[Rfam]
RNA: Small nucleolar RNA snR80
Organism: Lodderomyces parapsilosis
RNA sequence: AUAUGUUUGCCAACACUCUGGUGCCAAAUCUUAGUCUUGAAUAAAUCAAUUCUAUGCCAUAUUUGGUUCCUAUUUUGGUGCAAACUAAAUUGAAUAUUUUGGAGCUGACUACUCACCAUUGUAUUCCAUUUUCCACUAUGGAUACGAUAGGUCCAUUUCAUUAGCUCACAU
Numbered sequence: 001a002u003a004u005g006u007u008u009g010c011c012a013a014c015a016c017u018c019u020g021g022u023g024c025c026a027a028a029u030c031u032u033a034g035u036c037u038u039g040a041a042u043a044a045a046u047c048a049a050u051u052c053u054a055u056g057c058c059a060u061a062u063u064u065g066g067u068u069c070c071u072a073u074u075u076u077g078g079u080g081c082a083a084a085c086u087a088a089a090u091u092g093a094a095u096a097u098u099u100u101g102g103a104g105c106u107g108a109c110u111a112c113u114c115a116c117c118a119u120u121g122u123a124u125u126c127c128a129u130u131u132u133c134c135a136c137u138a139u140g141g142a143u144a145c146g147a148u149a150g151g152u153c154c155a156u157u158u159c160a161u162u163a164g165c166u167c168a169c170a171u
Base pairs, nucleotide, nucleotide: 007083008082009081020070021069023067024066026064027063028062029061031049032048034046103166104165105164106163116151117150118148119147121145122144123143125142126141127140